The family of this 37-nucleotide RNA is "DUF805b RNA". Rfam's curators put it in the seed alignment. Clan: DUF805 clan.

Nucleotides: 037
Base pairs, nucleotide, nucleotide: 002022003021004020005019011036012035013034
Number, partner (000 for none) and nucleotide at each position: 001000a002022a003021g004020g005019c006000g007000a008000a009000a010000a011036c012035c013034c014000g015000a016000a017000a018000a019005g020004c021003c022002u023000g024000u025000a026000a027000a028000a029000g030000a031000g032000u033000a034013g035012g036011g037000g